This 114-nucleotide RNA from Cellulomonas denverensis belongs to the Rfam family "ALIL pseudoknot". It scores 82 bits against the family's covariance model. Rfam links the family to the GO term positive regulation of translational frameshifting. Taxonomically the source falls in Cellulomonas (Bacteria, Actinomycetota, Micrococcales, Cellulomonadaceae).

[Rfam]
RNA sequence: GGCUUUCUUCGCGGCGGAGCUCGACCGCCCGCAGGUCAGGUAGUGGCGUUCAUCGACGCCCAUAAGGACGAGUUCGGGGUCGAGCCGAUCUGCCGCCUGUUGCAGGUCGCCCCG
Numbered sequence: 001g002g003c004u005u006u007c008u009u010c011g012c013g014g015c016g017g018a019g020c021u022c023g024a025c026c027g028c029c030c031g032c033a034g035g036u037c038a039g040g041u042a043g044u045g046g047c048g049u050u051c052a053u054c055g056a057c058g059c060c061c062a063u064a065a066g067g068a069c070g071a072g073u074u075c076g077g078g079g080u081c082g083a084g085c086c087g088a089u090c091u092g093c094c095g096c097c098u099g100u101u102g103c104a105g106g107u108c109g110c111c112c113c114g
Stems, first nucleotide, its partner, number of pairs: 013029005075114005086109002089106005095100001